Notes: Rfam assigns this 411-nucleotide RNA sequence from Streptomyces sp. TS71-3 to the family "Bacterial RNase P class A". By type it is a ribozyme. The family's consensus secondary structure is taken from published work. It scores 275 bits against the family's covariance model. Taxonomically the source falls in Streptomyces (Bacteria, Actinomycetota, Kitasatosporales, Streptomycetaceae).
RNA sequence: CGAGCCGGGCGGACGGCCGCGUGGAGCCACCCCUCACGGGGCGACUCCCCGAGGAACGUCCGGGCUCCACAGGGCAGGGUGGUGGCUAACGACCACCCGGGGUGACCCGCGGGACAGUGCCACAGAAAACAGACCGCCGGGGAUCUCGGUCCCCGGUAAGGGUGAAACGGUGGUGUAAGAGACCACCAGCGCCUGGGGUGACCCAGGCGGCUAGGUAAACCCCACCUGGAGCAAGGUCAAGAGGGGUGGCCCGCAAGGGCGGCCCUGCGCGGACGAUCGAGGGCGGCCCGCCCGAGUCCGCGGGUAGACCGCUUGAGGCCGGUGGCAACACCGGUCCUAGAUGGAUGGCCGUCGCCCCGACGACCGCGAGGUCCCGGGGCACAGAACCCGGCGUACGUCCCGACUCGUCUG
Numbered sequence: 001c002g003a004g005c006c007g008g009g010c011g012g013a014c015g016g017c018c019g020c021g022u023g024g025a026g027c028c029a030c031c032c033c034u035c036a037c038g039g040g041g042c043g044a045c046u047c048c049c050c051g052a053g054g055a056a057c058g059u060c061c062g063g064g065c066u067c068c069a070c071a072g073g074g075c076a077g078g079g080u081g082g083u084g085g086c087u088a089a090c091g092a093c094c095a096c097c098c099g100g101g102g103u104g105a106c107c108c109g110c111g112g113g114a115c116a117g118u119g120c121c122a123c124a125g126a127a128a129a130c131a132g133a134c135c136g137c138c139g140g141g142g143a144u145c146u147c148g149g150u151c152c153c154c155g156g157u158a159a160g161g162g163u164g165a166a167a168c169g170g171u172g173g174u175g176u177a178a179g180a181g182a183c184c185a186c187c188a189g190c191g192c193c194u195g196g197g198g199u200g201a202c203c204c205a206g207g208c209g210g211c212u213a214g215g216u217a218a219a220c221c222c223c224a225c226c227u228g229g230a231g232c233a234a235g236g237u238c239a240a241g242a243g244g245g246g247u248g249g250c251c252c253g254c255a256a257g258g259g260c261g262g263c264c265c266u267g268c269g270c271g272g273a274c275g276a277u278c279g280a281g282g283g284c285g286g287c288c289c290g291c292c293c294g295a296g297u298c299c300g301c302g303g304g305u306a307g308a309c310c311g312c313u314u315g316a317g318g319c320c321g322g323u324g325g326c327a328a329c330a331c332c333g334g335u336c337c338u339a340g341a342u343g344g345a346u347g348g349c350c351g352u353c354g355c356c357c358c359g360a361c362g363a364c365c366g367c368g369a370g371g372u373c374c375c376g377g378g379g380c381a382c383a384g385a386a387c388c389c390g391g392c393g394u395a396c397g398u399c400c401c402g403a404c405u406c407g408u409c410u411g
Stems, first nucleotide, its partner, number of pairs: 001407004006402004011396001012353007020051002023048004028043001056394003060391005065231004072289004077227005082096004097111001098109004112222002117220002119216003134161002136157009169187006189211001190209008235310004269301006281293004317336008